[Rfam]
RNA sequence: AAUGUAUGAUGACAAACUGUUUCGGUCCCAGAUGAUGGCUGCUGAUUACUUACGAGAUCAACUGAUAUU
Numbered sequence: 001a002a003u004g005u006a007u008g009a010u011g012a013c014a015a016a017c018u019g020u021u022u023c024g025g026u027c028c029c030a031g032a033u034g035a036u037g038g039c040u041g042c043u044g045a046u047u048a049c050u051u052a053c054g055a056g057a058u059c060a061a062c063u064g065a066u067a068u069u
Stems, first nucleotide, its partner, number of pairs: 001069004